[Rfam]
Plastid-rps12 3UTR RNA: a 103-nucleotide sequence. Plastid rpl20 is a non-coding RNA (ncRNA) recognised in plastids. It was found in the three prime untranslated region (3UTR) of rps12 gene, its 3UTR location sugest a role in transcript maduration. It is one of the family's seed sequences. The base pairs follow the family's consensus structure, which was predicted with LocARNA. A reference for the family is Richter et al. (2023), "Retrograde signaling in plants: A critical review focusing on the GUN pathway and beyond", Plant Commun.

RNA sequence: UUUAUUGGUUCAAAUCCAAUCACCCCAAUUUGGAUUAAAGAGGAGUAAAGAAUGCCCCAUUGGGAGCAAAUGCUUAUCCCAUUAAGCGGGGGGGAAAUUCUAU
Numbered sequence: 001u002u003u004a005u006u007g008g009u010u011c012a013a014a015u016c017c018a019a020u021c022a023c024c025c026c027a028a029u030u031u032g033g034a035u036u037a038a039a040g041a042g043g044a045g046u047a048a049a050g051a052a053u054g055c056c057c058c059a060u061u062g063g064g065a066g067c068a069a070a071u072g073c074u075u076a077u078c079c080c081a082u083u084a085a086g087c088g089g090g091g092g093g094g095a096a097a098u099u100c101u102a103u
Stems, first nucleotide, its partner, number of pairs: 005019004055091004059082002062078002065075002